This 172-nucleotide RNA from Paraburkholderia panacisoli belongs to the Rfam family "Group II catalytic intron D1-D4-3". The organism belongs to Paraburkholderia, within Bacteria. On this family, see Bonen and Vogel, Trends Genet 2001: "The ins and outs of group II introns". Rfam describes the family as follows. Group II introns are found in rRNA, tRNA and mRNA of organelles in fungi, plants and protists, and also in mRNA in bacteria.
RNA sequence: UCGCGGGCGACUGCGAAUCUGAAGGAAGCCGAAGGCAAAGCGCUGGCCUGACGAACAGGAAGCGGAUACGAGGCGACUCAGCCGAGUGAGAUGUCCAAAGUCAUCAAAGCCCAAUACUUGUACGGAAGGUUGCGGCGUAAAUCCGACGGGCGUAAGCGUGAAGGUUGGGGGC
Numbered sequence: 001u002c003g004c005g006g007g008c009g010a011c012u013g014c015g016a017a018u019c020u021g022a023a024g025g026a027a028g029c030c031g032a033a034g035g036c037a038a039a040g041c042g043c044u045g046g047c048c049u050g051a052c053g054a055a056c057a058g059g060a061a062g063c064g065g066a067u068a069c070g071a072g073g074c075g076a077c078u079c080a081g082c083c084g085a086g087u088g089a090g091a092u093g094u095c096c097a098a099a100g101u102c103a104u105c106a107a108a109g110c111c112c113a114a115u116a117c118u119u120g121u122a123c124g125g126a127a128g129g130u131u132g133c134g135g136c137g138u139a140a141a142u143c144c145g146a147c148g149g150g151c152g153u154a155a156g157c158g159u160g161a162a163g164g165u166u167g168g169g170g171g172c
Stems, first nucleotide, its partner, number of pairs: 001016006028172003035165002040159005046151005063145005073138003077134001079132005084112001086110002090105004